[Rfam]
RNA sequence: CGGAGCGUAGCGCAGCCCGGUAGCGCACUUGUCUGGGGGACAAGGGGUCGUGGGUUCGAAUCCCGCCGCUCCGA
Numbered sequence: 001c002g003g004a005g006c007g008u009a010g011c012g013c014a015g016c017c018c019g020g021u022a023g024c025g026c027a028c029u030u031g032u033c034u035g036g037g038g039g040a041c042a043a044g045g046g047g048u049c050g051u052g053g054g055u056u057c058g059a060a061u062c063c064c065g066c067c068g069c070u071c072c073g074a
Stems, first nucleotide, its partner, number of pairs: 001073007010026004028044005050066005
Shown here is a 74-nucleotide sequence from Rhodobiaceae bacterium UBA7378, a member of the family "tRNA". Rfam links the family to the GO term triplet codon-amino acid adaptor activity. The base pairs follow the family's consensus structure, which is taken from published work. From the family's description: Transfer RNA (tRNA) molecules are approximately 80 nucleotides in length.